Notes
Glycine riboswitch aptamer: a 96-nucleotide sequence from Paenibacillus dendritiformis.
RNA sequence: AUGAUGGUAAAGGGAGAGAUUACUGCGAGACAGUAACGCCGAAGGAGUAAGCCCGCCACGGGUGAAUCUCUCAGGCAAAAGGACGUUUACCGGACG
Numbered sequence: 001a002u003g004a005u006g007g008u009a010a011a012g013g014g015a016g017a018g019a020u021u022a023c024u025g026c027g028a029g030a031c032a033g034u035a036a037c038g039c040c041g042a043a044g045g046a047g048u049a050a051g052c053c054c055g056c057c058a059c060g061g062g063u064g065a066a067u068c069u070c071u072c073a074g075g076c077a078a079a080a081g082g083a084c085g086u087u088u089a090c091c092g093g094a095c096g
Stems, first nucleotide, its partner, number of pairs: 006091006013084001020036004038076003041072002045070003051063002
Dot-bracket structure: .....((((((.(......((((.........)))).(((((..(((...((.........))....))))).))).......).)))))).....